[Rfam]
Shown here is a 70-nucleotide RNA sequence from Phyllobacterium sp. YR620, a member of the family "S-element". The source organism's lineage runs through Bacteria, Pseudomonadota, Hyphomicrobiales, Phyllobacteriaceae and Phyllobacterium. The literature on the family includes a 2004 paper in Mol Microbiol by Venkova-Canova et al., "Two discrete elements are required for the replication of a repABC plasmid: an antisense RNA and a stem-loop structure". About the family: This family represents a group of S-elements from p42d and related plasmids. By type it is a cis-regulatory element.

RNA sequence: UGUCAAGAGUCAUUGGCGUCGUUUUGGCGAGUUGAGUUCUUUUGCCUUUUUGAAAAGGUGAAACGAGAUG
Numbered sequence: 001u002g003u004c005a006a007g008a009g010u011c012a013u014u015g016g017c018g019u020c021g022u023u024u025u026g027g028c029g030a031g032u033u034g035a036g037u038u039c040u041u042u043u044g045c046c047u048u049u050u051u052g053a054a055a056a057g058g059u060g061a062a063a064c065g066a067g068a069u070g
Stems, first nucleotide, its partner, number of pairs: 010066002013062002017060004022056004026050002029047001031045002034042002